[Rfam]
RNA sequence: UAGCUUCCGCGUGACUGGCGAAUGAGAUGGAAAACCAUCGGGAAGCGCGGUUGAGCCGCCGCUCGCCUGGGCACCUUCA
Numbered sequence: 001u002a003g004c005u006u007c008c009g010c011g012u013g014a015c016u017g018g019c020g021a022a023u024g025a026g027a028u029g030g031a032a033a034a035c036c037a038u039c040g041g042g043a044a045g046c047g048c049g050g051u052u053g054a055g056c057c058g059c060c061g062c063u064c065g066c067c068u069g070g071g072c073a074c075c076u077u078c079a
Base pairs, nucleotide, nucleotide: 004053007050008049009048010047011046012045015042016041017067018066019065020064021063027038028037029036030035058072059071060070
Dot-bracket structure: ...(..((((((..(([[[[[.....((((....))))..))..))))))..)....(((..]]]]]..))).......

Shown here is a 79-nucleotide RNA sequence from Rhizobium sp. P32RR-XVIII, a member of the family "ZMP/ZTP riboswitch aptamer (pfl RNA motif)".